[Rfam]
RNA sequence: UGAUACCAGGGGAUAAAAGUCAGAAGUCUGACGCAAGCUUGCUUGCAGGAAGACUUCUGACCUUUAUCCCCGCCAAAACAUGAGUAAGUAGCCAUUUUACGAAGAAAAAUGAGCGGAUUACGAAUGUUUUGAGGAUUGUGAGAGCACGAAAGUGCGGAACAAUCCGGUAUCA
Numbered sequence: 001u002g003a004u005a006c007c008a009g010g011g012g013a014u015a016a017a018a019g020u021c022a023g024a025a026g027u028c029u030g031a032c033g034c035a036a037g038c039u040u041g042c043u044u045g046c047a048g049g050a051a052g053a054c055u056u057c058u059g060a061c062c063u064u065u066a067u068c069c070c071c072g073c074c075a076a077a078a079c080a081u082g083a084g085u086a087a088g089u090a091g092c093c094a095u096u097u098u099a100c101g102a103a104g105a106a107a108a109a110u111g112a113g114c115g116g117a118u119u120a121c122g123a124a125u126g127u128u129u130u131g132a133g134g135a136u137u138g139u140g141a142g143a144g145c146a147c148g149a150a151a152g153u154g155c156g157g158a159a160c161a162a163u164c165c166g167g168u169a170u171c172a
Stems, first nucleotide, its partner, number of pairs: 001172007010070004017063001019061011032048001033046005074131008084121004091114002093111005133165007144155004
RNA: Clostridiales-1 RNA